[Rfam]
RNA sequence: GUGCUGAUCUUGUUAAAACAAGAAAAUAGCAGAUGAAUUUUGCUCGAUCGUUCAGACACGCAGCAAUGGCGUAAGACGUAAUGAAUAAUCAGGCAUUUAGCGGGCUGCGGGUUGCAGCCUGGACGACGAAAGGGUUUGAGUCACUCGAUCAUUUUUGAGUCAGCUCCCUUUUUGCGCGCUGUUUUUCCCGAUGAAAAACAGGCGACCGAUAAUUUGCGCCCCUUUAGCAGUCGACAUCCGGGAGGUUGACGAUAUUGCAAGAAGACACGGGGCCGUCGGUGUUGACCACGUCCAGCGUUACCAUGCCCGUAGCUUUGUCACUAA
Numbered sequence: 001g002u003g004c005u006g007a008u009c010u011u012g013u014u015a016a017a018a019c020a021a022g023a024a025a026a027u028a029g030c031a032g033a034u035g036a037a038u039u040u041u042g043c044u045c046g047a048u049c050g051u052u053c054a055g056a057c058a059c060g061c062a063g064c065a066a067u068g069g070c071g072u073a074a075g076a077c078g079u080a081a082u083g084a085a086u087a088a089u090c091a092g093g094c095a096u097u098u099a100g101c102g103g104g105c106u107g108c109g110g111g112u113u114g115c116a117g118c119c120u121g122g123a124c125g126a127c128g129a130a131a132g133g134g135u136u137u138g139a140g141u142c143a144c145u146c147g148a149u150c151a152u153u154u155u156u157g158a159g160u161c162a163g164c165u166c167c168c169u170u171u172u173u174g175c176g177c178g179c180u181g182u183u184u185u186u187c188c189c190g191a192u193g194a195a196a197a198a199c200a201g202g203c204g205a206c207c208g209a210u211a212a213u214u215u216g217c218g219c220c221c222c223u224u225u226a227g228c229a230g231u232c233g234a235c236a237u238c239c240g241g242g243a244g245g246u247u248g249a250c251g252a253u254a255u256u257g258c259a260a261g262a263a264g265a266c267a268c269g270g271g272g273c274c275g276u277c278g279g280u281g282u283u284g285a286c287c288a289c290g291u292c293c294a295g296c297g298u299u300a301c302c303a304u305g306c307c308c309g310u311a312g313c314u315u316u317g318u319c320a321c322u323a324a
Stems, first nucleotide, its partner, number of pairs: 008023005041095004046090002051085004058079003063070002102315011120294006132166005141158003175204003179201004184196004205280005218273005232251002235248002238245002
This 324-nucleotide sequence from Enterobacterales bacterium CwR94 belongs to the Rfam family "RNase E 5' UTR element".
The family's consensus secondary structure is taken from published work.
The literature on the family includes a 2000 paper in Genes Dev by Diwa et al., "An evolutionarily conserved RNA stem-loop functions as a sensor that directs feedback regulation of RNase E gene expression".
About the family: This family represents a conserved element found in the 5' UTR of RNase E mRNA. RNase E is a key regulatory enzyme in the pathway of mRNA degradation in E. coli that is able to auto-regulate the degradation of its own mRNA in response to changes in RNase E activity. This rne 5' UTR element acts as a sensor of cellular RNase E concentration enabling tight regulation of RNase E concentration and synthesis.
By type it is a cis-regulatory element.